[Rfam]
RNA sequence: ACAUGGAUUUGGAUUUAUGGCAGGCCCGUCCCCCUGGGUUCUCACAGUGCUCAUGCCAGAGCAAACUGUGACCUUCAACCAUUACCUGGUCUCUGCCCGUAGCUGUAGGCACUGAAGCAGGUUACACAAUC
Dot-bracket structure: .(((.(.(......((.(((.((.((.........)).)).))).)).).).))).............((((((.....((...(((((.((........)))))..))...))....)))))).......

Annotation:
Small nucleolar RNA SNORA42/SNORA80 family: a 131-nucleotide sequence from Myotis lucifugus. Gene Ontology terms of the family: RNA processing and nucleolus. It scores 96 bits against the family's covariance model. The literature on the family includes a 2006 paper in RNA by Schattner et al., "A computational screen for mammalian pseudouridylation guide H/ACA RNAs". Rfam classes the family as an H/ACA-box small nucleolar RNA. About the family: The members of this family belong to the H/ACA class of snoRNAs that guide the sites of modification of uridines to pseudouridines. Human ACA42 (SNORA42) was cloned from HeLa cells by immunoprecipitation with anti-GAR1 antibody. Its is predicted to guide the pseudouridylation of residues U109 and U572 of 18S rRNA. ACA42 shares the same host gene with ACA26, ACA46, ACA50. The family has 21 seed sequences and 1,535 matches in Rfam 15.1. The organism belongs to Myotis, within Eukaryota.